[Rfam]
RNA sequence: GAGAGUGUCGUCUAAUGGAAGGGCAUCGGUCUUCUAAACCGAUCUGUGUAGGUUCAAGUCCUACCACUCUCG
Numbered sequence: 001g002a003g004a005g006u007g008u009c010g011u012c013u014a015a016u017g018g019a020a021g022g023g024c025a026u027c028g029g030u031c032u033u034c035u036a037a038a039c040c041g042a043u044c045u046g047u048g049u050a051g052g053u054u055c056a057a058g059u060c061c062u063a064c065c066a067c068u069c070u071c072g
Stems, first nucleotide, its partner, number of pairs: 001071007010024004026042005048064005